About this RNA:
Rfam assigns this 71-nucleotide RNA sequence to the family "Fluoride riboswitch aptamer (crcB RNA motif)". The match comes from Rfam's covariance-model search (42 bits).
RNA sequence: UUAAUUAAAGGUGAUGAGGUUCACCUAUUUAACUGCCAACUUUUUAAAAGUGGCUGAUGACCUAUAUAAAU
Numbered sequence: 001u002u003a004a005u006u007a008a009a010g011g012u013g014a015u016g017a018g019g020u021u022c023a024c025c026u027a028u029u030u031a032a033c034u035g036c037c038a039a040c041u042u043u044u045u046a047a048a049a050g051u052g053g054c055u056g057a058u059g060a061c062c063u064a065u066a067u068a069a070a071u
Stems, first nucleotide, its partner, number of pairs: 010025004016062001020060002035054004